The family of this 57-nucleotide RNA sequence from Prunus armeniaca is "Plastid-psbA-3 3UTR RNA". It is annotated as a cis-regulatory element. The family's consensus secondary structure was predicted with LocARNA. Plastid psbA-3 is a non-coding RNA (ncRNA) present in plastids.
RNA sequence: AAAGGAGCAAUAAUAAUUUCUUGUUAUAUCAAGAGGUUUGUUAUUGAUCAUUUACUA
Numbered sequence: 001a002a003a004g005g006a007g008c009a010a011u012a013a014u015a016a017u018u019u020c021u022u023g024u025u026a027u028a029u030c031a032a033g034a035g036g037u038u039u040g041u042u043a044u045u046g047a048u049c050a051u052u053u054a055c056u057a
Stems, first nucleotide, its partner, number of pairs: 001053003005049002008046007018035006